[Rfam]
RNA sequence: GGUGGAAAAUUCCUAAGGGAUCGCAUGAUCCAAUGAAUGGAAAUGAGAAUUAAACUCAUUUAGGAGCAUCAGUAGUGGAGAUCAUCAUCAGAUCAAUGCGAUCCCUUUGGAGCUCUCCAC
Number, nucleotide and partner (000 for none) at each position: 001g000002g120003u119004g118005g117006a116007a000008a114009a000010u112011u111012c110013c109014u000015a107016a106017g105018g104019g103020a102021u101022c000023g099024c098025a097026u095027g094028a093029u092030c091031c000032a000033a000034u000035g086036a000037a000038u000039g000040g000041a000042a000043a000044u000045g000046a000047g000048a000049a000050u000051u000052a000053a000054a000055c000056u000057c000058a000059u000060u000061u000062a000063g000064g000065a000066g000067c000068a000069u000070c000071a000072g000073u000074a000075g000076u000077g000078g000079a000080g000081a000082u000083c000084a000085u000086c035087a000088u000089c000090a000091g030092a029093u028094c027095a026096a000097u025098g024099c023100g000101a021102u020103c019104c018105c017106u016107u015108u000109g013110g012111a011112g010113c000114u008115c000116u006117c005118c004119a003120c002
The family of this 120-nucleotide RNA from Hevea brasiliensis is "mir-393 microRNA precursor family". The base pairs follow the family's consensus structure. Gene Ontology terms of the family: RISC complex and miRNA-mediated post-transcriptional gene silencing. It scores 67 bits against the family's covariance model. On this family, see Kruszka et al., J Plant Physiol 2012: "Role of microRNAs and other sRNAs of plants in their changing environments". Taxonomically the source falls in Hevea (Eukaryota, Viridiplantae, Spermatophyta, Crotonoideae).